[Rfam]
RNA sequence: AGGGCAUCAAUAAGGAGAUACUAAAAAAAUUAUCCUUGCACUUUGAUUGUCGCACAAGAAAUAAAAUGGGCAUGUUCUCUCUGAGAUCUUU
Numbered sequence: 001a002g003g004g005c006a007u008c009a010a011u012a013a014g015g016a017g018a019u020a021c022u023a024a025a026a027a028a029a030u031u032a033u034c035c036u037u038g039c040a041c042u043u044u045g046a047u048u049g050u051c052g053c054a055c056a057a058g059a060a061a062u063a064a065a066a067u068g069g070g071c072a073u074g075u076u077c078u079c080u081c082u083g084a085g086a087u088c089u090u091u
Stems, first nucleotide, its partner, number of pairs: 002091003006087003
Dot-bracket structure: .(((.(((............................................................................))).)))
A member of the RNA family "Small nucleolar RNA snoR26" from Gossypium anomalum, 91 nucleotides long. The base pairs follow the family's consensus structure, which was predicted with WAR. Rfam 15.1 lists 611 matches to the family in 220 species. NCBI's taxonomy places the organism under Eukaryota, Embryophyta, Euphyllophyta, Malvales, Gossypium. By type it is a C/D-box small nucleolar RNA.